[Rfam]
RNA sequence: CACCUUUUAUCGCUGAAUCUUUUUUAGAGCGGGGGAACCAAAUUUUGAUAGCAAUGUCUAUCUUGGGGUGAAUCUUACGCAGUAAGAAGGGGUACUCUCUACUCCUAAUCCGACAGCUAACCUCGUAAGCGUUAUUUGAGAGAAGGG
Numbered sequence: 001c002a003c004c005u006u007u008u009a010u011c012g013c014u015g016a017a018u019c020u021u022u023u024u025u026a027g028a029g030c031g032g033g034g035g036a037a038c039c040a041a042a043u044u045u046u047g048a049u050a051g052c053a054a055u056g057u058c059u060a061u062c063u064u065g066g067g068g069u070g071a072a073u074c075u076u077a078c079g080c081a082g083u084a085a086g087a088a089g090g091g092g093u094a095c096u097c098u099c100u101a102c103u104c105c106u107a108a109u110c111c112g113a114c115a116g117c118u119a120a121c122c123u124c125g126u127a128a129g130c131g132u133u134a135u136u137u138g139a140g141a142g143a144a145g146g147g
Stems, first nucleotide, its partner, number of pairs: 011131004018028003029126006039065002066111003074086004089105004
c-di-AMP riboswitch aptamer (ydaO/yuaA leader): a 147-nucleotide RNA sequence from Filobacillus milosensis. The organism belongs to Filobacillus, within Bacteria. The base pairs follow the family's consensus structure. The literature on the family includes a 2004 paper in Proc Natl Acad Sci U S A by Barrick et al., "New RNA motifs suggest an expanded scope for riboswitches in bacterial genetic control". Rfam 15.1 lists 7,607 matches to the family in 2,262 species.